[Rfam]
RNA sequence: UGUUAAAAAUUACAUCUAUUUUUACUGUUAAAAAAUAGUUUCUAUACACCAAUAUGAGCUAUACAUGACACAUCAUGUUUCAUUGUUUGGUUAUUUCGUUAAUCAUGCUAGUUUUUAACAAUAUAAAUGGAUGAAUUUUUUAACA
Numbered sequence: 001u002g003u004u005a006a007a008a009a010u011u012a013c014a015u016c017u018a019u020u021u022u023u024a025c026u027g028u029u030a031a032a033a034a035a036u037a038g039u040u041u042c043u044a045u046a047c048a049c050c051a052a053u054a055u056g057a058g059c060u061a062u063a064c065a066u067g068a069c070a071c072a073u074c075a076u077g078u079u080u081c082a083u084u085g086u087u088u089g090g091u092u093a094u095u096u097c098g099u100u101a102a103u104c105a106u107g108c109u110a111g112u113u114u115u116u117a118a119c120a121a122u123a124u125a126a127a128u129g130g131a132u133g134a135a136u137u138u139u140u141u142a143a144c145a
Stems, first nucleotide, its partner, number of pairs: 002144008011135001013133004018128004023123002026120001028118006
Background
Rfam assigns this 145-nucleotide RNA sequence from Gossypium australe to the family "MIR7502 microRNA precursor family". It scores 78 bits against the family's covariance model. NCBI's taxonomy places the organism under Eukaryota, Streptophytina, eudicotyledons, rosids, Gossypium. The base pairs follow the family's consensus structure, which was predicted with RNAalifold.